[Rfam]
RNA sequence: CCUCGCACGCCUCUCAACGAUGCGCACAUGCGAGGG
Numbered sequence: 001c002c003u004c005g006c007a008c009g010c011c012u013c014u015c016a017a018c019g020a021u022g023c024g025c026a027c028a029u030g031c032g033a034g035g036g
Base pairs, nucleotide, nucleotide: 001035002034003033004032005031006030008024009023010022
abiF RNA: a 36-nucleotide RNA sequence from Demequina lutea. Rfam's curators write: Actinobacteria, Bacteroidetes, Clostridia, Proteobacteria, one Clostridia phage. NCBI's taxonomy places the organism under Bacteria, Bacillati, Actinomycetes, Micrococcales, Demequina. The family has 126 seed sequences and 282 matches in Rfam 15.1.